[Rfam]
RNA sequence: AACCAUAAUUAAUCGUGCGGAUUAAUAAUCCAGGACUCUAAAACCGUGUUGCUCUAAUCGACCUUCCAGUUGGUUCUGAGCGUCAAGUCCAUCGGAGAGAUAAAAUUUUUGUUCAUCUUAAUGCCCUUUUGUGUAAUAGACUUAGCUGAUUAUACAAGGGCUGGUAGAACGUACAGUU
Number, nucleotide and partner (000 for none) at each position: 001a000002a000003c000004c000005a000006u000007a000008a026009u025010u024011a023012a022013u021014c020015g000016u000017g000018c000019g000020g014021a013022u012023u011024a010025a009026u008027a000028a000029u096030c095031c094032a000033g090034g089035a088036c087037u000038c000039u000040a000041a000042a000043a000044c000045c000046g000047u000048g000049u000050u000051g081052c080053u079054c078055u000056a075057a074058u073059c072060g071061a070062c069063c000064u000065u000066c000067c000068a000069g062070u061071u060072g059073g058074u057075u056076c000077u000078g054079a053080g052081c051082g000083u000084c000085a000086a000087g036088u035089c034090c033091a000092u000093c000094g031095g030096a029097g000098a000099g000100a000101u000102a000103a000104a000105a000106u000107u000108u000109u000110u000111g000112u000113u000114c000115a000116u169117c000118u167119u166120a165121a000122u000123g161124c160125c159126c158127u157128u000129u000130u156131g155132u154133g153134u152135a151136a150137u149138a000139g000140a000141c000142u000143u000144a000145g000146c000147u000148g000149a137150u136151u135152a134153u133154a132155c131156a130157a127158g126159g125160g124161c123162u000163g000164g000165u120166a119167g118168a000169a116170c000171g000172u000173a000174c000175a000176g000177u000178u000

The record is a 178-nucleotide RNA sequence from Torulaspora delbrueckii, which matches "Small nucleolar RNA snR35" in Rfam. By type it is an H/ACA-box small nucleolar RNA. Taxonomically the source falls in Torulaspora (Eukaryota, Fungi, Dikarya, saccharomyceta). Pairs were carried over by alignment from the consensus structure, which was predicted with WAR. Clan: SNORA13 clan.